[Rfam]
RNA sequence: AUGUUUUGGUAAUCGCUGCGCUACCUAUUAGCGUAGAGGAAAGUCCAUGCUCACACAGGCUGCGAUGCUUGUAGUGUUCGUGCUUGACGAAUUCAUAAGUCAAGGUAACCUUUAUGGUUAACGGCAGGGAAAAUACCUAAGUCUUCGGAUAUGGUAUGAAUACCUUGAAAGUGCCACAGUGACGUAGUCAGGUCGGAAACGAUCCUGAGUGGAACGGGUAAACCCCACGAGUGAGCAACCCAAAUAUUGGUAGGGGCAUCCUUGAUUAGGGAAUUGAACCGAAAAAGGGACAAGCUUAGCUUGUAGAUAGAUGAUUACUACUUGCGUACGAGGCUGACCACCGUUUGCAGUGCAAUAGUACAAAACAUGGCUUAUAAAA
Numbered sequence: 001a002u003g004u005u006u007u008g009g010u011a012a013u014c015g016c017u018g019c020g021c022u023a024c025c026u027a028u029u030a031g032c033g034u035a036g037a038g039g040a041a042a043g044u045c046c047a048u049g050c051u052c053a054c055a056c057a058g059g060c061u062g063c064g065a066u067g068c069u070u071g072u073a074g075u076g077u078u079c080g081u082g083c084u085u086g087a088c089g090a091a092u093u094c095a096u097a098a099g100u101c102a103a104g105g106u107a108a109c110c111u112u113u114a115u116g117g118u119u120a121a122c123g124g125c126a127g128g129g130a131a132a133a134u135a136c137c138u139a140a141g142u143c144u145u146c147g148g149a150u151a152u153g154g155u156a157u158g159a160a161u162a163c164c165u166u167g168a169a170a171g172u173g174c175c176a177c178a179g180u181g182a183c184g185u186a187g188u189c190a191g192g193u194c195g196g197a198a199a200c201g202a203u204c205c206u207g208a209g210u211g212g213a214a215c216g217g218g219u220a221a222a223c224c225c226c227a228c229g230a231g232u233g234a235g236c237a238a239c240c241c242a243a244a245u246a247u248u249g250g251u252a253g254g255g256g257c258a259u260c261c262u263u264g265a266u267u268a269g270g271g272a273a274u275u276g277a278a279c280c281g282a283a284a285a286a287g288g289g290a291c292a293a294g295c296u297u298a299g300c301u302u303g304u305a306g307a308u309a310g311a312u313g314a315u316u317a318c319u320a321c322u323u324g325c326g327u328a329c330g331a332g333g334c335u336g337a338c339c340a341c342c343g344u345u346u347g348c349a350g351u352g353c354a355a356u357a358g359u360a361c362a363a364a365a366c367a368u369g370g371c372u373u374a375u376a377a378a379a
Base pairs, nucleotide, nucleotide: 004379005378006377008319009318010317011316012315013314014313016036017035018034019033020032021031041373042372043371045370046369047368048367049366050235051234052233053232054231055072056071057070058069059068060067078230079229080228081227082226083104084103085102086101087100088099105122106120107119108118109117110116123225124224126165127164128163134156135155136154137153141150142149143148171223172222173219174218175217188208189207190206191205192204193202194201195200239255240254241253259289260288261287262286263285290304291303292302293301294300295299321358322357326353327352328351329350

The family of this 379-nucleotide RNA sequence from Aquibacillus koreensis is "Bacterial RNase P class B". It scores 313 bits against the family's covariance model. The family's RNA type in Rfam is ribozyme.